[Rfam]
RNA sequence: GAGGGUAGGCCCCUCGGAGUCUGCUGACAGAAGCUGGUUUCAAACCGCCUCAAGCUGCGAUGGUAAAGAGGCAUCGUGGUGAACGUUGGAGGAAAGCAUGAGAACUCAUGCCAGG
Number, nucleotide and partner (000 for none) at each position: 001g015002a014003g013004g012005g011006u000007a000008g000009g000010c000011c005012c004013c003014u002015c001016g041017g040018a039019g038020u037021c036022u000023g034024c033025u032026g000027a000028c000029a000030g000031a000032a025033g024034c023035u000036g021037g020038u019039u018040u017041c016042a000043a000044a000045c115046c114047g000048c091049c000050u089051c088052a087053a086054g080055c079056u000057g077058c076059g075060a000061u073062g072063g000064u070065a000066a000067a000068g000069a000070g064071g000072c062073a061074u000075c059076g058077u057078g000079g055080u054081g000082a000083a000084c000085g000086u053087u052088g051089g050090a000091g048092g000093a000094a000095a000096g111097c110098a109099u108100g107101a106102g000103a000104a000105c000106u101107c100108a099109u098110g097111c096112c000113a000114g046115g045
The family of this 115-nucleotide sequence from Leptonema illini is "Group II catalytic intron D1-D4-2". Rfam links the family to the GO term Group II intron splicing. From the family's description: Group II introns are found in rRNA, tRNA and mRNA of organelles in fungi, plants and protists, and also in mRNA in bacteria. The match comes from Rfam's covariance-model search (88 bits). Pairs were carried over by alignment from the consensus structure.